[Rfam]
Shown here is a 180-nucleotide sequence from Neomoorella humiferrea, a member of the family "glmS glucosamine-6-phosphate activated ribozyme aptamer". Lineage of the source: Bacteria > Bacillota > Clostridia > Neomoorellaceae > Neomoorella. Rfam describes the family as follows. This entry contains a glucosamine-6-phosphate activated ribozyme that is found in the mRNA for GlmS. GlmS is an enzyme that uses fructose-6-phosphate and glutamine to generate glucosamine-6-phosphate. The ribozyme catalyses self cleavage of the glmS mRNA that is thought to regulate GlmS activity.
RNA sequence: AGAUUCAGGCAAGCGCCGGGACCGGCCGUUUUGGCGUUACACCACCAGGCAAAGACGGUCGGUUGACGAGGAGGGGGUUUAUCGAGGCAUCGGCGGGUGCCCCCCGGUUCGGUUACGACCGUCAAAGGCGCUACAAAACCCGGGAGCAAUCCCGGGGACAAAGGGCGCCGGGUAACCCUU
Numbered sequence: 001a002g003a004u005u006c007a008g009g010c011a012a013g014c015g016c017c018g019g020g021a022c023c024g025g026c027c028g029u030u031u032u033g034g035c036g037u038u039a040c041a042c043c044a045c046c047a048g049g050c051a052a053a054g055a056c057g058g059u060c061g062g063u064u065g066a067c068g069a070g071g072a073g074g075g076g077g078u079u080u081a082u083c084g085a086g087g088c089a090u091c092g093g094c095g096g097g098u099g100c101c102c103c104c105c106g107g108u109u110c111g112g113u114u115a116c117g118a119c120c121g122u123c124a125a126a127g128g129c130g131c132u133a134c135a136a137a138a139c140c141c142g143g144g145a146g147c148a149a150u151c152c153c154g155g156g157g158a159c160a161a162a163g164g165g166c167g168c169c170g171g172g173u174a175a176c177c178c179u180u
Stems, first nucleotide, its partner, number of pairs: 020064008029055004073104005082093004105121005127169006139156007